[Rfam]
Nucleotides: 062
Base pairs, nucleotide, nucleotide: 012059013027014026015025028045029044030043032041033040034039046058047057048056
Number, partner (000 for none) and nucleotide at each position: 001000a002000u003000a004000a005000u006000g007000a008000u009000a010000c011000u012059u013027c014026c015025g016000u017000a018000a019000c020000c021000a022000a023000a024000u025015u026014g027013g028045c029044c030043c031000g032041c033040c034039a035000u036000u037000a038000c039034u040033g041032g042000g043030g044029g045028g046058a047057g048056g049000u050000g051000a052000g053000a054000u055000u056048c057047c058046u059012a060000u061000g062000u

The family of this 62-nucleotide RNA sequence from Enterococcus lacertideformus is "pemK RNA". The base pairs follow the family's consensus structure, which is taken from published work.